[Rfam]
RNA sequence: CGGGGGAGGCCAGAUCCUGGGCUGUGUCCGGGCGACCAGUGCUCUGGGGCCUGCGCUGUUUCAUUAGCGCUCCUGGGGCUGCGUAGCCCCCU
Numbered sequence: 001c002g003g004g005g006g007a008g009g010c011c012a013g014a015u016c017c018u019g020g021g022c023u024g025u026g027u028c029c030g031g032g033c034g035a036c037c038a039g040u041g042c043u044c045u046g047g048g049g050c051c052u053g054c055g056c057u058g059u060u061u062c063a064u065u066a067g068c069g070c071u072c073c074u075g076g077g078g079c080u081g082c083g084u085a086g087c088c089c090c091c092u
Base pairs, nucleotide, nucleotide: 002091003090004089005088006087009084010083011081012080013079016076017075019073020072021071023069024068025067027063031057032056033055034054039051041050042049043048
The record is a 92-nucleotide RNA from Canis lupus, which matches "mir-8799 microRNA precursor family" in Rfam. Its family is annotated with miRNA-mediated post-transcriptional gene silencing and RISC complex in the Gene Ontology. The base pairs follow the family's consensus structure, which was predicted with RNAalifold.